rpsB sRNA: a 102-nucleotide sequence from Zavarzinia compransoris. Rfam 15.1 lists 245 matches to the family in 245 species. The base pairs follow the family's consensus structure, which is taken from published work. It scores 46 bits against the family's covariance model.
[Rfam]
Nucleotides: 102
Stems, first nucleotide, its partner, number of pairs: 001077001003075001005074006015041002022034003048063006
Number, partner (000 for none) and nucleotide at each position: 001077c002000a003075c004000a005074c006073g007072u008071g009070g010069g011000g012000u013000u014000u015041g016040c017000g018000g019000c020000u021000g022034c023033g024032g025000a026000a027000g028000g029000g030000u031000u032024c033023c034022g035000c036000c037000g038000u039000c040016g041015c042000u043000c044000c045000g046000g047000u048063g049062u050061c051060c052059g053058g054000a055000u056000u057000u058053c059052c060051g061050g062049a063048c064000g065000a066000c067000a068000u069010c070009c071008c072007a073006c074005g075003g076000a077001g078000g079000c080000u081000c082000a083000a084000c085000c086000g087000g088000a089000a090000a091000a092000g093000g094000u095000a096000c097000a098000g099000a100000u101000c102000a
Rfam classes the family as a small RNA.